[Rfam]
RNA sequence: UGAUAAGUUCAAGGCCGUAGCAGAAGUGCUCAAAGCGUGGCCUGUUAUAUUCCAAUGAAUCUCUGAAUUCUGCU
Numbered sequence: 001u002g003a004u005a006a007g008u009u010c011a012a013g014g015c016c017g018u019a020g021c022a023g024a025a026g027u028g029c030u031c032a033a034a035g036c037g038u039g040g041c042c043u044g045u046u047a048u049a050u051u052c053c054a055a056u057g058a059a060u061c062u063c064u065g066a067a068u069u070c071u072g073c074u
Base pairs, nucleotide, nucleotide: 013042014041015040016039019074020073021072022071023070024069025068026038027037028036047062049060050059051058052057
The record is a 74-nucleotide sequence from Alligator sinensis, which matches "Mammalian CPEB3 ribozyme" in Rfam.
The base pairs follow the family's consensus structure, which is taken from published work.
The source organism's lineage runs through Eukaryota, Metazoa, Eumetazoa, Chordata and Alligator.
The match comes from Rfam's covariance-model search (38 bits).
The mammalian CPEB3 ribozyme is a self cleaving RNA located in the second intron of the CPEB3 gene which belongs to a family of genes regulating messenger RNA polyadenylation. This ribozyme is highly conserved and found only in mammals.